Shown here is a 156-nucleotide RNA from Neogale vison, a member of the family "U4 spliceosomal RNA". For this family Rfam cites "Crystal structure of the spliceosomal 15.5kD protein bound to a U4 snRNA fragment" (Vidovic et al., Mol Cell, 2000). Lineage of the source: Eukaryota > Euteleostomi > Tetrapoda > Boreoeutheria > Neogale. It scores 73 bits against the family's covariance model.
[Rfam]
RNA sequence: AGCUUUGCGCAGUGGCAGUAUCGUAGCCAAUGAGGUUUAUCCGAGGCGCGAUUAUUGCUAAUUGAAACACAUCAUCCUGAAACUUACUGUCUUGGGGUUCCUGGGUGACUCAGUAGGUUAAGCGUCAGACUCUUGAUUUCUGCUCAGGUCAUGAUC
Numbered sequence: 001a002g003c004u005u006u007g008c009g010c011a012g013u014g015g016c017a018g019u020a021u022c023g024u025a026g027c028c029a030a031u032g033a034g035g036u037u038u039a040u041c042c043g044a045g046g047c048g049c050g051a052u053u054a055u056u057g058c059u060a061a062u063u064g065a066a067a068c069a070c071a072u073c074a075u076c077c078u079g080a081a082a083c084u085u086a087c088u089g090u091c092u093u094g095g096g097g098u099u100c101c102u103g104g105g106u107g108a109c110u111c112a113g114u115a116g117g118u119u120a121a122g123c124g125u126c127a128g129a130c131u132c133u134u135g136a137u138u139u140c141u142g143c144u145c146a147g148g149u150c151a152u153g154a155u156c
Stems, first nucleotide, its partner, number of pairs: 020052005026047003034042002086134001089130004094125001096123001147156003